[Rfam]
RNA sequence: ACUCGGCACCUUUCACUCGGAUCGUCCGGCACGUACCUGCCGGUGAAGGGACCAUGACAAA
Numbered sequence: 001a002c003u004c005g006g007c008a009c010c011u012u013u014c015a016c017u018c019g020g021a022u023c024g025u026c027c028g029g030c031a032c033g034u035a036c037c038u039g040c041c042g043g044u045g046a047a048g049g050g051a052c053c054a055u056g057a058c059a060a061a
Stems, first nucleotide, its partner, number of pairs: 009050007026043006

A member of the RNA family "msiK RNA" from Actinobaculum sp. 352, 61 nucleotides long. The source organism's lineage runs through Bacteria, Bacillati, Actinomycetes, Actinomycetales and Actinobaculum. By type it is a cis-regulatory element. The family's consensus secondary structure is taken from published work.